[Rfam]
RNA: T-box leader
Organism: Sporomusa sphaeroides
RNA sequence: UCAAAUGCAAUGAACGGGAUAAGUAAAUUAGCUGCGCUAUUAUCAGAGAGCCGGGGGGUGGUGUGACCCGGUAGGCGUGCAUAUUGAAAUACACCCGUGAGCAGCAGGUCGAACGGAAUACAAGUAGACUGCGCCGGAGGCCACCGUUAUCAUAGGCUAGGGUAUCGGAAUUCCUGUACCUGAAAGAGUGGCUUGCUAUUUAUUUAAGCAAGCAGGGUGGUACCGCGAGUAAAGUCUCGUCCCUGUA
Numbered sequence: 001u002c003a004a005a006u007g008c009a010a011u012g013a014a015c016g017g018g019a020u021a022a023g024u025a026a027a028u029u030a031g032c033u034g035c036g037c038u039a040u041u042a043u044c045a046g047a048g049a050g051c052c053g054g055g056g057g058g059u060g061g062u063g064u065g066a067c068c069c070g071g072u073a074g075g076c077g078u079g080c081a082u083a084u085u086g087a088a089a090u091a092c093a094c095c096c097g098u099g100a101g102c103a104g105c106a107g108g109u110c111g112a113a114c115g116g117a118a119u120a121c122a123a124g125u126a127g128a129c130u131g132c133g134c135c136g137g138a139g140g141c142c143a144c145c146g147u148u149a150u151c152a153u154a155g156g157c158u159a160g161g162g163u164a165u166c167g168g169a170a171u172u173c174c175u176g177u178a179c180c181u182g183a184a185a186g187a188g189u190g191g192c193u194u195g196c197u198a199u200u201u202a203u204u205u206a207a208g209c210a211a212g213c214a215g216g217g218u219g220g221u222a223c224c225g226c227g228a229g230u231a232a233a234g235u236c237u238c239g240u241c242c243c244u245g246u247a
Stems, first nucleotide, its partner, number of pairs: 007102002015097004026085003031080001040074002050072006105133001107130004135146003191209005214244004225240005